[Rfam]
RNA sequence: CUCUUAUCAUGAGCGGCUGAGGGAAUAGGCCCUGCGAAGCCCGGCAACCUUCAAACAACGGUUUGAAAAGGUGCUACGUCCUACAGAUCAAUGGAUCUGGAAGAUAAGAG
Numbered sequence: 001c002u003c004u005u006a007u008c009a010u011g012a013g014c015g016g017c018u019g020a021g022g023g024a025a026u027a028g029g030c031c032c033u034g035c036g037a038a039g040c041c042c043g044g045c046a047a048c049c050u051u052c053a054a055a056c057a058a059c060g061g062u063u064u065g066a067a068a069a070g071g072u073g074c075u076a077c078g079u080c081c082u083a084c085a086g087a088u089c090a091a092u093g094g095a096u097c098u099g100g101a102a103g104a105u106a107a108g109a110g
Stems, first nucleotide, its partner, number of pairs: 001110008013042001015041003021032003026083004043075004048071002050067004079102001084099006
RNA: SAM riboswitch aptamer (S box leader)
Organism: Halobacillus salinus